[Rfam]
Shown here is a 96-nucleotide sequence, a member of the family "DUF1874 RNA". By type it is a cis-regulatory element. Rfam's curators put it in the seed alignment.
RNA sequence: GUCAGUCCCGCAGGGAGAAGGUCAUCCACGGUAAGUGCGGCCAUAGGUCGCCGCCUUCUCCCUCCUGUCAAAAGACAGGCUUGCGGGACGGGAGGU
Numbered sequence: 001g002u003c004a005g006u007c008c009c010g011c012a013g014g015g016a017g018a019a020g021g022u023c024a025u026c027c028a029c030g031g032u033a034a035g036u037g038c039g040g041c042c043a044u045a046g047g048u049c050g051c052c053g054c055c056u057u058c059u060c061c062c063u064c065c066u067g068u069c070a071a072a073a074g075a076c077a078g079g080c081u082u083g084c085g086g087g088a089c090g091g092g093a094g095g096u
Stems, first nucleotide, its partner, number of pairs: 005089009014061009035052001037051005064079005